[Rfam]
RNA: c-di-GMP-I riboswitch aptamer
Organism: Cohnella sp. CIP 111063
RNA sequence: UUUGGAUAAAGGCAAACUUGCUGAAAAGCAAGGACGCAAAGCUACAGGGUCUAAUGUCCCGAGGACGAUGACAGCCUGGCUGCCGAU
Numbered sequence: 001u002u003u004g005g006a007u008a009a010a011g012g013c014a015a016a017c018u019u020g021c022u023g024a025a026a027a028g029c030a031a032g033g034a035c036g037c038a039a040a041g042c043u044a045c046a047g048g049g050u051c052u053a054a055u056g057u058c059c060c061g062a063g064g065a066c067g068a069u070g071a072c073a074g075c076c077u078g079g080c081u082g083c084c085g086a087u
Stems, first nucleotide, its partner, number of pairs: 012037002017032006040081004046077003049072003056066004